[Rfam]
The family of this 32-nucleotide RNA sequence from Dysgonomonas mossii is "DUF805b RNA".
RNA sequence: GAGGCGGAACCGAAAAGCCAAAAGAGUAGGAU
Numbered sequence: 001g002a003g004g005c006g007g008a009a010c011c012g013a014a015a016a017g018c019c020a021a022a023a024g025a026g027u028a029g030g031a032u
Stems, first nucleotide, its partner, number of pairs: 003019003010030002
Rfam's curators put it in the seed alignment.